[Rfam]
RNA sequence: CUUCACGUUGAGCCUCACGUACAAUACCUGAAGAUGGAGUUUUGUUCGUUCGGCUCGCGUUACGC
Numbered sequence: 001c002u003u004c005a006c007g008u009u010g011a012g013c014c015u016c017a018c019g020u021a022c023a024a025u026a027c028c029u030g031a032a033g034a035u036g037g038a039g040u041u042u043u044g045u046u047c048g049u050u051c052g053g054c055u056c057g058c059g060u061u062a063c064g065c
Base pairs, nucleotide, nucleotide: 001064003062005060006059007058009057010056011055012054013053014052018048019047021045022044023043024042026040027039